Shown here is an 86-nucleotide sequence from Clostridium saccharoperbutylacetonicum, a member of the family "Group II catalytic intron D1-D4-1".
[Rfam]
RNA sequence: CAACCUAUAUAGUGAUAUGUAGCUGAACUAUCAGAAGUCAGCAGAAGUCAUAGUAACUCCGCUAAUCGCGAUAGCGGAUGAAGGAC
Numbered sequence: 001c002a003a004c005c006u007a008u009a010u011a012g013u014g015a016u017a018u019g020u021a022g023c024u025g026a027a028c029u030a031u032c033a034g035a036a037g038u039c040a041g042c043a044g045a046a047g048u049c050a051u052a053g054u055a056a057c058u059c060c061g062c063u064a065a066u067c068g069c070g071a072u073a074g075c076g077g078a079u080g081a082a083g084g085a086c
Stems, first nucleotide, its partner, number of pairs: 001025002005022007038045002047086003056079001058078007
The literature on the family includes a 2001 paper in Trends Genet by Bonen and Vogel, "The ins and outs of group II introns".